The family of this 91-nucleotide RNA from Nomascus leucogenys is "GRIK4 3 prime UTR element". The family's RNA type in Rfam is non-coding RNA gene. It scores 98 bits against the family's covariance model. The organism belongs to Nomascus, within Eukaryota.
[Rfam]
RNA sequence: UAGUCCCGGCGGCCACAGGACGCGCGGAGGCCGGGCGGGGCGGGAGGGGCGGGGCGCGCGCUGCUGUCAGCCGUGAGCCGGGACUUGUACA
Numbered sequence: 001u002a003g004u005c006c007c008g009g010c011g012g013c014c015a016c017a018g019g020a021c022g023c024g025c026g027g028a029g030g031c032c033g034g035g036c037g038g039g040g041c042g043g044g045a046g047g048g049g050c051g052g053g054g055c056g057c058g059c060g061c062u063g064c065u066g067u068c069a070g071c072c073g074u075g076a077g078c079c080g081g082g083a084c085u086u087g088u089a090c091a
Base pairs, nucleotide, nucleotide: 003050004049005048006047007046011032012031013030014029
Pairs were carried over by alignment from the consensus structure, which was predicted with CMfinder. For this family Rfam cites "A common variant in the 3'UTR of the GRIK4 glutamate receptor gene affects transcript abundance and protects against bipolar disorder" (Pickard et al., Proc Natl Acad Sci U S A, 2008).